[Rfam]
RNA sequence: GUCCGUUCAUCCCUUUGGGACGCAUGCUACCUGAGUCAUGGAACGGGGACUCAGG
Numbered sequence: 001g002u003c004c005g006u007u008c009a010u011c012c013c014u015u016u017g018g019g020a021c022g023c024a025u026g027c028u029a030c031c032u033g034a035g036u037c038a039u040g041g042a043a044c045g046g047g048g049a050c051u052c053a054g055g
Stems, first nucleotide, its partner, number of pairs: 004045005010020004030055006036048002
Overview:
Shown here is a 55-nucleotide RNA from Sednavirus SRIP2, a member of the family "Glutamine-II riboswitch aptamer". The organism belongs to Sednavirus SRIP2, within Viruses. A reference for the family is Huang et al. (2019), "Structure and ligand binding of the glutamine-II riboswitch", Nucleic Acids Res.